[Rfam]
RNA sequence: UCCUCGCUCAAAGAAUCGCAAUCAAAGCUCACACACAGACAAGCCACCAUACUCGUCUUACAUACACACACAGCUUUGGGAGAAAGUCCCCGGACCACCCUUGUCUCACCACAGGGGAUUGCGGAAACGCGCCGCCAUAGAAGCAAAAAGCGGCUCAUCCACACCCACGCACCUCCAUCCGCUCCUCGCACCCCUCACCCACCGCUCGUACUCCCGCUCGGACGCCGCGCUGCUCGGGCUAGCAAAGCGAGGGAGACCGGUCUUCGGGCUGCCUGCAAGGGAGACGAGGAUAUGAGUCUGCGCUUCUUUGCCCACGCUGGCUUCCGGCUGCGGUGCGCGCGAAUGAGUGUGAGGAGGCGGGUGGGGUUUCACUAAUGUGUGGAGAGAUCACGGUGCGCUACAGGUGCGCCGGCAGGAACCAUUCGUCGCGGUCGAUAGAUAUGCGAUUGCCUUCGCUCAUCCUUUCGUUCACUGUCUUCGCGCUGAUCACUCGUGAGAAUAGCGAGGCAGAGAAUCGAGAGGGAGGUGAGGGUAACUCGAUGGGGCUUAUUCUUGAUGCGAGG
Numbered sequence: 001u002c003c004u005c006g007c008u009c010a011a012a013g014a015a016u017c018g019c020a021a022u023c024a025a026a027g028c029u030c031a032c033a034c035a036c037a038g039a040c041a042a043g044c045c046a047c048c049a050u051a052c053u054c055g056u057c058u059u060a061c062a063u064a065c066a067c068a069c070a071c072a073g074c075u076u077u078g079g080g081a082g083a084a085a086g087u088c089c090c091c092g093g094a095c096c097a098c099c100c101u102u103g104u105c106u107c108a109c110c111a112c113a114g115g116g117g118a119u120u121g122c123g124g125a126a127a128c129g130c131g132c133c134g135c136c137a138u139a140g141a142a143g144c145a146a147a148a149a150g151c152g153g154c155u156c157a158u159c160c161a162c163a164c165c166c167a168c169g170c171a172c173c174u175c176c177a178u179c180c181g182c183u184c185c186u187c188g189c190a191c192c193c194c195u196c197a198c199c200c201a202c203c204g205c206u207c208g209u210a211c212u213c214c215c216g217c218u219c220g221g222a223c224g225c226c227g228c229g230c231u232g233c234u235c236g237g238g239c240u241a242g243c244a245a246a247g248c249g250a251g252g253g254a255g256a257c258c259g260g261u262c263u264u265c266g267g268g269c270u271g272c273c274u275g276c277a278a279g280g281g282a283g284a285c286g287a288g289g290a291u292a293u294g295a296g297u298c299u300g301c302g303c304u305u306c307u308u309u310g311c312c313c314a315c316g317c318u319g320g321c322u323u324c325c326g327g328c329u330g331c332g333g334u335g336c337g338c339g340c341g342a343a344u345g346a347g348u349g350u351g352a353g354g355a356g357g358c359g360g361g362u363g364g365g366g367u368u369u370c371a372c373u374a375a376u377g378u379g380u381g382g383a384g385a386g387a388u389c390a391c392g393g394u395g396c397g398c399u400a401c402a403g404g405u406g407c408g409c410c411g412g413c414a415g416g417a418a419c420c421a422u423u424c425g426u427c428g429c430g431g432u433c434g435a436u437a438g439a440u441a442u443g444c445g446a447u448u449g450c451c452u453u454c455g456c457u458c459a460u461c462c463u464u465u466c467g468u469u470c471a472c473u474g475u476c477u478u479c480g481c482g483c484u485g486a487u488c489a490c491u492c493g494u495g496a497g498a499a500u501a502g503c504g505a506g507g508c509a510g511a512g513a514a515u516c517g518a519g520a521g522g523g524a525g526g527u528g529a530g531g532g533u534a535a536c537u538c539g540a541u542g543g544g545g546c547u548u549a550u551u552c553u554u555g556a557u558g559c560g561a562g563g
Stems, first nucleotide, its partner, number of pairs: 002563006008556004014448006022080001023078006038057003042053002084548003088545004099116006319420002324416002327413003333409004337398004384391001450532008

Rfam assigns this 563-nucleotide RNA from Friedmanniomyces endolithicus to the family "RNase MRP". RNase MRP is an enzymatically active ribonucleoprotein with two distinct roles in eukaryotes. In mitochondria it plays a direct role in the initiation of mitochondrial DNA replication. In the nucleus it is involved in precursor rRNA processing, where it cleaves the internal transcribed spacer 1 between 18S and 5.8S rRNAs. Despite distinct functions, RNase MRP has been shown to be evolutionarily related to RNase P. Like eukaryotic RNase P, RNase MRP is not catalytically active without associated protein subunits. The match comes from Rfam's covariance-model search (94 bits). Taxonomically the source falls in Friedmanniomyces (Eukaryota, Ascomycota, Dothideomycetes, Dothideomycetidae). It is annotated as a ribozyme.